[Rfam]
RNA sequence: GAGACACCCUUCUGGGGCAAGACUUGCUUCAGUGGACCUUUGGUGCUCACUGAGUAUUCCUCCUGAGUGUGUCCCU
Numbered sequence: 001g002a003g004a005c006a007c008c009c010u011u012c013u014g015g016g017g018c019a020a021g022a023c024u025u026g027c028u029u030c031a032g033u034g035g036a037c038c039u040u041u042g043g044u045g046c047u048c049a050c051u052g053a054g055u056a057u058u059c060c061u062c063c064u065g066a067g068u069g070u071g072u073c074c075c076u
Stems, first nucleotide, its partner, number of pairs: 001075001003073005009067003014062004019057001022055002029053007038043001
Rfam assigns this 76-nucleotide RNA sequence from Myotis myotis to the family "mir-9229 microRNA precursor family". NCBI's taxonomy places the organism under Eukaryota, Bilateria, Deuterostomia, Theria, Myotis. The base pairs follow the family's consensus structure, which was predicted with RNAalifold. Gene Ontology terms of the family: RISC complex and miRNA-mediated post-transcriptional gene silencing.